The record is a 73-nucleotide sequence from Phocoena sinus, which matches "Small nucleolar RNA SNORD113/SNORD114 family" in Rfam. The family is grouped with related families in Rfam's "SNORD74 clan". Its family is annotated with nucleolus and RNA processing in the Gene Ontology. Rfam's curators write: The imprinted human domain at 14q32 contains two clusters of tandemly repeated small nucleolar RNAs named 14q(I) and 14q(II) snoRNAs. These two clusters are named SNORD113 and SNORD114 respectively in the HGNC approved gene symbol nomenclature.

[Rfam]
RNA sequence: UGGACCGUUAAUGAUGUCUGGGGCAUGUGAGUCAUGGAUGAUGAAUAGUAUGUGUGUGGAACUCGGGGUCAAC
Numbered sequence: 001u002g003g004a005c006c007g008u009u010a011a012u013g014a015u016g017u018c019u020g021g022g023g024c025a026u027g028u029g030a031g032u033c034a035u036g037g038a039u040g041a042u043g044a045a046u047a048g049u050a051u052g053u054g055u056g057u058g059g060a061a062c063u064c065g066g067g068g069u070c071a072a073c
Base pairs, nucleotide, nucleotide: 003070004069005068006067